[Rfam]
RNA sequence: CCACUCACGUGCCCUUAUCACUUUUCCAGCCAGCCUUCUUAUGCUAACCGUUGGACGGAGAACUGAUAAGGGUCUGUGUGUGU
Numbered sequence: 001c002c003a004c005u006c007a008c009g010u011g012c013c014c015u016u017a018u019c020a021c022u023u024u025u026c027c028a029g030c031c032a033g034c035c036u037u038c039u040u041a042u043g044c045u046a047a048c049c050g051u052u053g054g055a056c057g058g059a060g061a062a063c064u065g066a067u068a069a070g071g072g073u074c075u076g077u078g079u080g081u082g083u
Base pairs, nucleotide, nucleotide: 012072013071014070015069016068017067018066019065020064022062023061024060025059026058027057030054031053
Source information: A member of the RNA family "mir-184 microRNA precursor family" from Podarcis muralis, 83 nucleotides long. Gene Ontology terms of the family: gene silencing by miRNA and RISC complex. The base pairs follow the family's consensus structure, which was predicted with PFOLD. The literature on the family includes a 2005 paper in Genes Dev by Chen et al., "The developmental miRNA profiles of zebrafish as determined by small RNA cloning".